[Rfam]
RNA: Small nucleolar RNA SNORA55
RNA sequence: GCACCUGAAUCUUUCCUAUCGCUUGCUGUGCAUUGCAGGUCUGGGGGCAGCUGGUGCUACAGCACAGCAGUGGAAAUCCAGAUGGGUUGUUCUCCACUGAUUUGCAGCUCAUCUCUACACCUCUGCAACAUUU
Numbered sequence: 001g002c003a004c005c006u007g008a009a010u011c012u013u014u015c016c017u018a019u020c021g022c023u024u025g026c027u028g029u030g031c032a033u034u035g036c037a038g039g040u041c042u043g044g045g046g047g048c049a050g051c052u053g054g055u056g057c058u059a060c061a062g063c064a065c066a067g068c069a070g071u072g073g074a075a076a077u078c079c080a081g082a083u084g085g086g087u088u089g090u091u092c093u094c095c096a097c098u099g100a101u102u103u104g105c106a107g108c109u110c111a112u113c114u115c116u117a118c119a120c121c122u123c124u125g126c127a128a129c130a131u132u133u
Stems, first nucleotide, its partner, number of pairs: 001057005013047006022038001067126004072121001080114008095104002